[Rfam]
RNA: Bacterial RNase P class A
Organism: Dechloromonas denitrificans
Nucleotides: 383
Base pairs, nucleotide, nucleotide: 001379002378003377004376005375006374007373008372009371010370011368012334013333014332015331016330017329018328020039021038023036024035025034026033027032044366045365046364048363049362050361051360052359053239054238055237056236060271061270062269063268065235066234067233068232069231070084071083072082073081074080085114086112087111088110089109115230116229120228121227122224123223137169138168139165140164141163144162145161146160148158149157177195178194180192181191182190196219197217198216199215200214201213202211203210204209243291244290245289246288253282254281255280256279257278258277262276263275264274265273266272298317299316300315301314302313303312304311305310
Number, partner (000 for none) and nucleotide at each position: 001379a002378a003377a004376g005375u006374c007373g008372g009371c010370c011368a012334g013333g014332c015331a016330a017329u018328c019000g020039c021038u022000g023036g024035a025034c026033a027032c028000g029000a030000a031000a032027g033026u034025g035024u036023c037000g038021g039020g040000a041000g042000g043000a044366a045365a046364g047000u048363c049362c050361g051360g052359g053239c054238u055237c056236c057000a058000u059000u060271g061270g062269g063268c064000a065235g066234g067233a068232u069231g070084c071083c072082a073081g074080c075000u076000a077000a078000c079000g080074g081073c082072u083071g084070g085114g086112u087111g088110c089109u090000a091000u092000a093000c094000g095000g096000u097000c098000g099000c100000a101000a102000g103000a104000c105000u106000c107000a108000a109089g110088g111087c112086a113000a114085c115230g116229g117000a118000a119000a120228g121227u122224g123223c124000a125000a126000c127000a128000g129000a130000a131000a132000a133000u134000a135000a136000a137169c138168c139165g140164c141163c142000g143000a144162u145161g146160g147000c148158c149157c150000c151000g152000c153000a154000a155000g156000g157149g158148g159000a160146u161145c162144a163141g164140g165139u166000a167000a168138g169137g170000g171000c172000g173000a174000a175000a176000c177195g178194g179000c180192g181191a182190g183000g184000u185000a186000a187000g188000a189000g190182c191181u192180c193000a194178c195177c196219g197217c198216g199215c200214u201213g202211g203210c204209g205000g206000u207000a208000a209204c210203g211202u212000u213201c214200a215199g216198c217197g218000g219196c220000a221000u222000g223123g224122c225000a226000a227121a228120c229116c230115c231069c232068a233067u234066c235065c236056g237055g238054a239053g240000c241000a242000a243291g244290a245289c246288c247000a248000a249000a250000u251000a252000g253282g254281g255280a256279a257278g258277c259000u260000g261000a262276g263275g264274c265273g266272u267000g268063g269062c270061c271060c272266g273265c274264g275263c276262u277258g278257c279256u280255u281254c282253c283000g284000g285000g286000u287000a288246g289245g290244u291243u292000g293000c294000u295000u296000g297000a298317g299316c300315c301314u302313g303312u304311c305310g306000g307000u308000a309000a310305c311304g312303g313302c314301a315300g316299g317298c318000c319000u320000a321000g322000a323000g324000g325000a326000a327000u328018g329017a330016u331015u332014g333013c334012c335000g336000a337000a338000c339000c340000u341000c342000g343000c344000a345000a346000g347000a348000g349000g350000g351000g352000a353000a354000c355000a356000g357000a358000a359052c360051c361050c362049g363048g364046c365045u366044u367000a368011u369000c370010g371009g372008c373007c374006g375005g376004c377003u378002u379001u380000c381000c382000a383000c